[Rfam]
RNA sequence: GACGGAAAAUUCCAAAGGGAUGGCAUGAUCCUGUAAACUAUGGGAAGGAGAGAGAGAGAGAAGAGAGAGGAUCAAUGCGAUCCCUUUGGAAUUUUCCGU
Numbered sequence: 001g002a003c004g005g006a007a008a009a010u011u012c013c014a015a016a017g018g019g020a021u022g023g024c025a026u027g028a029u030c031c032u033g034u035a036a037a038c039u040a041u042g043g044g045a046a047g048g049a050g051a052g053a054g055a056g057a058g059a060g061a062a063g064a065g066a067g068a069g070g071a072u073c074a075a076u077g078c079g080a081u082c083c084c085u086u087u088g089g090a091a092u093u094u095u096c097c098g099u
Stems, first nucleotide, its partner, number of pairs: 002099005008093014023078003026074006
Description: A member of the RNA family "mir-393 microRNA precursor family" from Spirodela intermedia, 99 nucleotides long. The base pairs follow the family's consensus structure. A search with the family's covariance model found it, with a score of 65 bits.